[Rfam]
RNA: mir-228 microRNA precursor family
Organism: Caenorhabditis bovis
RNA sequence: AGCAUGUUCGCAAUGGCACUGCAUGAAUUCACGGCAUCGCGUUGAAACCGCGAAUCAUGUGGUACCAUGGCAAACGUGCUCU
Numbered sequence: 001a002g003c004a005u006g007u008u009c010g011c012a013a014u015g016g017c018a019c020u021g022c023a024u025g026a027a028u029u030c031a032c033g034g035c036a037u038c039g040c041g042u043u044g045a046a047a048c049c050g051c052g053a054a055u056c057a058u059g060u061g062g063u064a065c066c067a068u069g070g071c072a073a074a075c076g077u078g079c080u081c082u
Stems, first nucleotide, its partner, number of pairs: 006075003010071001013068004018063009028054003032050003